[Rfam]
RNA sequence: UCCUGACUAUCAAGCGAUUGGUAGACACUAGCCAAGACAGGAGAAACUAAUG
Numbered sequence: 001u002c003c004u005g006a007c008u009a010u011c012a013a014g015c016g017a018u019u020g021g022u023a024g025a026c027a028c029u030a031g032c033c034a035a036g037a038c039a040g041g042a043g044a045a046a047c048u049a050a051u052g
Stems, first nucleotide, its partner, number of pairs: 002041004007024005
RNA: Mu-gpT-DE RNA